A member of the RNA family "mir-1 microRNA precursor family" from Rattus norvegicus, 77 nucleotides long. Gene Ontology terms of the family: miRNA-mediated post-transcriptional gene silencing and RISC complex. Rfam 15.1 lists 4,474 matches to the family in 965 species. For this family Rfam cites "An extensive class of small RNAs in Caenorhabditis elegans" (Lee and Ambros, Science, 2001). The source organism's lineage runs through Eukaryota, Mammalia, Theria, Muroidea and Rattus.

RNA sequence: GCUUGGGACACAUACUUCUUUAUAUGCCCAUAUGGACCUGCUAAGCUAUGGAAUGUAAAGAAGUAUGUAUUUCAGGC
Numbered sequence: 001g002c003u004u005g006g007g008a009c010a011c012a013u014a015c016u017u018c019u020u021u022a023u024a025u026g027c028c029c030a031u032a033u034g035g036a037c038c039u040g041c042u043a044a045g046c047u048a049u050g051g052a053a054u055g056u057a058a059a060g061a062a063g064u065a066u067g068u069a070u071u072u073c074a075g076g077c
Stems, first nucleotide, its partner, number of pairs: 007071002010068016028051005
This family represents the microRNA (miRNA) mir-1 family. miRNAs are transcribed as ~70nt precursors (modelled here) and subsequently processed by the Dicer enzyme to give a ~22nt product. In this case the mature sequence comes from the 3' arm of the precursor. The extents of the hairpin precursors are not generally known and are estimated based on hairpin prediction. The products are thought to have regulatory roles through complementarity to mRNA. The involvement of Dicer in miRNA processing suggests a relationship with the phenomenon of RNA interference. miRNAs are numbered based on the sequence of the mature RNA. This family also contains the mir-206 from human, which appears to be related to mir-1.